[Rfam]
RNA sequence: GUCUCUAAUGAUGAUGAUUAACUUGAAACUUUCGUUCUUCUGAGAAAUCAACCAUGUGGAACACAUAUGGAGACCUGAACUGAAGAGAC
Number, nucleotide and partner (000 for none) at each position: 001g000002u000003c087004u086005c085006u084007a000008a000009u000010g000011a000012u000013g000014a000015u000016g000017a000018u000019u000020a000021a000022c000023u000024u000025g000026a000027a000028a000029c000030u000031u000032u000033c000034g000035u000036u000037c000038u000039u000040c000041u000042g000043a000044g000045a000046a000047a000048u000049c000050a000051a000052c000053c000054a000055u000056g000057u000058g000059g000060a000061a000062c000063a000064c000065a000066u000067a000068u000069g000070g000071a000072g000073a000074c000075c000076u000077g000078a000079a000080c000081u000082g000083a000084a006085g005086a004087g003088a000089c000
RNA: Small nucleolar RNA Z159/U59